Rfam assigns this 75-nucleotide RNA from Xanthomonas campestris to the family "Xanthomonas sRNA sX9". The match comes from Rfam's covariance-model search (68 bits). The source organism's lineage runs through Bacteria, Pseudomonadota, Lysobacteraceae, Xanthomonas campestris and Xanthomonas campestris pv. campestris. It is annotated as a small RNA.
[Rfam]
RNA sequence: AUGUAUCCACGUACGGUCCGGUUCUUCCGCGCCGCCCGCACCCACCUGACAACUGCCCGCUACGUACCGUUAGCC
Numbered sequence: 001a002u003g004u005a006u007c008c009a010c011g012u013a014c015g016g017u018c019c020g021g022u023u024c025u026u027c028c029g030c031g032c033c034g035c036c037c038g039c040a041c042c043c044a045c046c047u048g049a050c051a052a053c054u055g056c057c058c059g060c061u062a063c064g065u066a067c068c069g070u071u072a073g074c075c
Base pairs, nucleotide, nucleotide: 002015003014004013005012006011019034020033021032022031024029046073047072048071049070050069